[Rfam]
RNA: c-di-GMP-II-GAG riboswitch aptamer
Organism: Thermanaerothrix daxensis
RNA sequence: AGUCAAUGUGGCGGCGACUAACUGCGGGGUGGUGUUUCUGGUCGCCGAUCCGCCCAGGGAGAGGGGGUACAUCCCGCAGGGAGCCAAUGGCGAAACCGGCCACAGCACAG
Numbered sequence: 001a002g003u004c005a006a007u008g009u010g011g012c013g014g015c016g017a018c019u020a021a022c023u024g025c026g027g028g029g030u031g032g033u034g035u036u037u038c039u040g041g042u043c044g045c046c047g048a049u050c051c052g053c054c055c056a057g058g059g060a061g062a063g064g065g066g067g068u069a070c071a072u073c074c075c076g077c078a079g080g081g082a083g084c085c086a087a088u089g090g091c092g093a094a095a096c097c098g099g100c101c102a103c104a105g106c107a108c109a110g
Base pairs, nucleotide, nucleotide: 007104008103009102010101011100013085014084015083022079023078024077025076026075027074028073029072040097041096042093043092044091045090046089